[Rfam]
Record summary: Rfam assigns this 114-nucleotide RNA sequence to the family "RAGATH-11 RNA". The sequence is in the family's curated seed alignment.
RNA sequence: UUUCUCUUAGAGAAGUAAGCUUGGUUUAUGGUUCCAGGCUAGUCUAAAUAGUUGUCGAGUUCGCAGCUUCGGCUCGGAUGAGUGACGCUGUUUAUGAUGAACGUCCCAUAGUAG
Dot-bracket structure: ((((((...))))))...((((((...[[[[..))))))..((((((......((((.((....(((....)))...))...)))).....))).))).......]]]].....